[Rfam]
RNA sequence: GUUCUAAUGUGAUCUUUUCUUUUGAAAUAAAUUUGUGAUGUUAAAUUCAAAAGAAAUUGCUAUUAGAAUAAGAAGGUUAACUAUUUAGUUUUACUUCCAGGAUGCCUUGAAAGCAGCCCUUUUAAAAUCCAGGAACCAUCACUCGACUUAAUAUUAUAAGUGACGUAUUAAGUUUAAAGUUUUCACUUGCCGAAC
Numbered sequence: 001g002u003u004c005u006a007a008u009g010u011g012a013u014c015u016u017u018u019c020u021u022u023u024g025a026a027a028u029a030a031a032u033u034u035g036u037g038a039u040g041u042u043a044a045a046u047u048c049a050a051a052a053g054a055a056a057u058u059g060c061u062a063u064u065a066g067a068a069u070a071a072g073a074a075g076g077u078u079a080a081c082u083a084u085u086u087a088g089u090u091u092u093a094c095u096u097c098c099a100g101g102a103u104g105c106c107u108u109g110a111a112a113g114c115a116g117c118c119c120u121u122u123u124a125a126a127a128u129c130c131a132g133g134a135a136c137c138a139u140c141a142c143u144c145g146a147c148u149u150a151a152u153a154u155u156a157u158a159a160g161u162g163a164c165g166u167a168u169u170a171a172g173u174u175u176a177a178a179g180u181u182u183u184c185a186c187u188u189g190c191c192g193a194a195c
Stems, first nucleotide, its partner, number of pairs: 001069009016056009026046001036141005073108005079090004096134003100130004109123001111121003145174005151168004157189006
Shown here is a 195-nucleotide RNA from Hubei diptera virus 1, a member of the family "Cripavirus internal ribosome entry site (IRES)".
It scores 122 bits against the family's covariance model.
The organism belongs to Riboviria, within Viruses.
Rfam's curators write: This family represents a Cripavirus internal ribosome entry site (IRES) which is required for the production of capsid proteins through IRES-mediated translation.
The literature on the family includes a 2016 paper in Elife by Murray et al., "Structural characterization of ribosome recruitment and translocation by type IV IRES".
Its family is annotated with ribosome binding in the Gene Ontology.